[Rfam]
RNA sequence: GGAUACGAGGGUGCUCUGCCUGUGACAUCUGUCACCCCAUUGAUCAACAGGCUUGAUUCAGCUGAUCUGGCUGGCUAGGCAGGUGUCCCCUUCCUCCCUCACCACUCCAUGUGCAUCCCCCCUGAAGCUGUGCGCUCGGUUGAAGAGGACGACCUUCCCUGAUAGAGAUGUACCGUUCAUCUGUCAAGGGGGUACAGUAGCCAUGCUCUCCUGUUAGAACCUCCAAGCAAGCUGAAGGUCCAUUUGCAGGAGAAGAUAGGGUAGUCAAGCUUCCAAAACUGCAGACACAUCCAAGUGAGGCACUGCAUAGGGCAGUCUGACAUUGUUU
Numbered sequence: 001g002g003a004u005a006c007g008a009g010g011g012u013g014c015u016c017u018g019c020c021u022g023u024g025a026c027a028u029c030u031g032u033c034a035c036c037c038c039a040u041u042g043a044u045c046a047a048c049a050g051g052c053u054u055g056a057u058u059c060a061g062c063u064g065a066u067c068u069g070g071c072u073g074g075c076u077a078g079g080c081a082g083g084u085g086u087c088c089c090c091u092u093c094c095u096c097c098c099u100c101a102c103c104a105c106u107c108c109a110u111g112u113g114c115a116u117c118c119c120c121c122c123u124g125a126a127g128c129u130g131u132g133c134g135c136u137c138g139g140u141u142g143a144a145g146a147g148g149a150c151g152a153c154c155u156u157c158c159c160u161g162a163u164a165g166a167g168a169u170g171u172a173c174c175g176u177u178c179a180u181c182u183g184u185c186a187a188g189g190g191g192g193u194a195c196a197g198u199a200g201c202c203a204u205g206c207u208c209u210c211c212u213g214u215u216a217g218a219a220c221c222u223c224c225a226a227g228c229a230a231g232c233u234g235a236a237g238g239u240c241c242a243u244u245u246g247c248a249g250g251a252g253a254a255g256a257u258a259g260g261g262u263a264g265u266c267a268a269g270c271u272u273c274c275a276a277a278a279c280u281g282c283a284g285a286c287a288c289a290u291c292c293a294a295g296u297g298a299g300g301c302a303c304u305g306c307a308u309a310g311g312g313c314a315g316u317c318u319g320a321c322a323u324u325g326u327u328u
Stems, first nucleotide, its partner, number of pairs: 001108003007100005013093001018090001024087010035074002037070003042067004117170001119167001121165001122139004127135002140162003147158003200270002206264002209261006221252004227247005293328003297323001299321001301319001302316005
Shown here is a 328-nucleotide RNA sequence from Tricholaema leucomelas, a member of the family "7SK RNA". For this family Rfam cites "Transcription: surprising role for an elusive small nuclear RNA" (Blencowe, Curr Biol, 2002). Lineage of the source: Eukaryota > Bilateria > Craniata > Aves > Tricholaema lacrymosa. About the family: 7SK was discovered as an abundant small nuclear RNA in the mid-70s but a possible function has only recently been suggested. Two independent studies have found that 7SK RNA binds the CDK9/cyclin T complex (known as elongation factor P-TEFb). P-TEFb activates transcription by phosphorylating the C-terminal domain of RNA polymerase II. This process is negatively regulated by the 7SK RNP. The secondary structure of 7SK RNA shown here was proposed by Wasserman and Steitz on the basis of chemical modification and enzymatic cleavage experiments. This family contains a number of annotated pseudogenes and 7SK derived repeats. The threshold is artificially high to minimise the pseudogene count.